[Rfam]
Notes:
ivy-DE RNA: a 93-nucleotide sequence from Pseudomonas donghuensis. Lineage of the source: Bacteria > Pseudomonadati > Pseudomonadota > Pseudomonadales > Pseudomonas. Pairs were carried over by alignment from the consensus structure, which is taken from published work. By type it is a cis-regulatory element.
RNA sequence: UGACCAGGGGGCCGGGCUGCUCUGAUUGUUUCAGGAUCGGAGGGGCCUAGGGGUACAGGGAGUACCUCCGAUGAGGGCCGGGUCAGGUGAAGC
Numbered sequence: 001u002g003a004c005c006a007g008g009g010g011g012c013c014g015g016g017c018u019g020c021u022c023u024g025a026u027u028g029u030u031u032c033a034g035g036a037u038c039g040g041a042g043g044g045g046c047c048u049a050g051g052g053g054u055a056c057a058g059g060g061a062g063u064a065c066c067u068c069c070g071a072u073g074a075g076g077g078c079c080g081g082g083u084c085a086g087g088u089g090a091a092g093c
Stems, first nucleotide, its partner, number of pairs: 001085005010079004014048005020042008050068007